The record is a 90-nucleotide sequence from Furnarius figulus, which matches "Small nucleolar RNA SNORD35" in Rfam. On this family, see Nicoloso et al., J Mol Biol 1996: "Intron-encoded, antisense small nucleolar RNAs: the characterization of nine novel species points to their direct role as guides for the 2'-O-ribose methylation of rRNAs". Rfam describes the family as follows. U35 is a C/D box snoRNA located in intron 6 of ribosomal protein L13A and intron 3 of ribosomal protein S11 in humans and at homologous positions in mouse and chicken ribosomal protein genes. U35 guides the methylation of 2'-O-ribose sites in 28S rRNA. Its Rfam clan is "SNORD35 clan". The match comes from Rfam's covariance-model search (73 bits). The base pairs follow the family's consensus structure, which was predicted with PFOLD. Its family is annotated with nucleolus and RNA processing in the Gene Ontology. The source organism's lineage runs through Eukaryota, Deuterostomia, Amniota, Furnariidae and Furnarius.
RNA sequence: UGGUGAUGAUGUCCAAACUCACGAUGGUCUGCAGAGUCCCCCAGGUGAGGGGCUGCUGACAAUGCCACUGGCAUGUGCUGAACCGUGAGG
Numbered sequence: 001u002g003g004u005g006a007u008g009a010u011g012u013c014c015a016a017a018c019u020c021a022c023g024a025u026g027g028u029c030u031g032c033a034g035a036g037u038c039c040c041c042c043a044g045g046u047g048a049g050g051g052g053c054u055g056c057u058g059a060c061a062a063u064g065c066c067a068c069u070g071g072c073a074u075g076u077g078c079u080g081a082a083c084c085g086u087g088a089g090g
Base pairs, nucleotide, nucleotide: 001085002084003083004082